This 45-nucleotide sequence from Hafnia alvei belongs to the Rfam family "Guanidine-II riboswitch aptamer (mini-ykkC)". Simpler in structure and has fewer highly conserved nucleotide positions than the ykkC-yxkD leader. Its family is annotated with regulation of gene expression in the Gene Ontology. NCBI's taxonomy places the organism under Bacteria, Enterobacterales, Hafniaceae, Hafnia, Hafnia alvei.
RNA sequence: UGCGCAGGACGACCUGUGUACGUAUCUUAAUUCGGGGACGACCCC
Numbered sequence: 001u002g003c004g005c006a007g008g009a010c011g012a013c014c015u016g017u018g019u020a021c022g023u024a025u026c027u028u029a030a031u032u033c034g035g036g037g038a039c040g041a042c043c044c045c
Stems, first nucleotide, its partner, number of pairs: 001020008034045004
A search with the family's covariance model found it, with a score of 45 bits.